The family of this 146-nucleotide RNA from Streptomyces coelicolor is "c-di-AMP riboswitch aptamer (ydaO/yuaA leader)".
[Rfam]
RNA sequence: AGUCCCCGUACGGCGCGAGCCAGGGGAGCCGGGGACCCAUCGCAGUCCCUGGGGUGAAUCGGACGCCCGCGCGCACCGCGAGGGGGUCCGUAGGAGACCUUCCACCUCCGAACCCGUCAGCUAACCCGGUAGGCGAGAGGGAAGGA
Numbered sequence: 001a002g003u004c005c006c007c008g009u010a011c012g013g014c015g016c017g018a019g020c021c022a023g024g025g026g027a028g029c030c031g032g033g034g035a036c037c038c039a040u041c042g043c044a045g046u047c048c049c050u051g052g053g054g055u056g057a058a059u060c061g062g063a064c065g066c067c068c069g070c071g072c073g074c075a076c077c078g079c080g081a082g083g084g085g086g087u088c089c090g091u092a093g094g095a096g097a098c099c100u101u102c103c104a105c106c107u108c109c110g111a112a113c114c115c116g117u118c119a120g121c122u123a124a125c126c127c128g129g130u131a132g133g134c135g136a137g138a139g140g141g142a143a144g145g146a
Stems, first nucleotide, its partner, number of pairs: 011135002014132001020026002028130006038051002052115003060090004093109004
Dot-bracket structure: ..........((.(.....((...)).((((((....((..........))(((.....((((.......................))))..((((.........))))...))).........)))))).).))...........
The pairing is the family consensus, mapped onto this sequence. Rfam's curators put it in the seed alignment.